The family of this 92-nucleotide RNA from Paraburkholderia solisilvae is "Selenocysteine transfer RNA".
The family's consensus secondary structure is taken from published work.
It scores 73 bits against the family's covariance model.
Taxonomically the source falls in Paraburkholderia (Bacteria, Pseudomonadati, Pseudomonadota, Betaproteobacteria).
The literature on the family includes a 2000 paper in FEBS Lett by Mizutani and Goto, "Eukaryotic selenocysteine tRNA has the 9/4 secondary structure".

RNA sequence: GGAAGGCAUACGCAUCGGGUGGUGCGGCUGGGCUUCAAACCCAGUAGGGGGUGUCAGACACUCUCUGGUCGGUUCGACUCCGGCUGCCUUCC
Dot-bracket structure: ((((((((..((((((....))))))((((((.......)))))).(((((.........)))))...((((.......)))).))))))))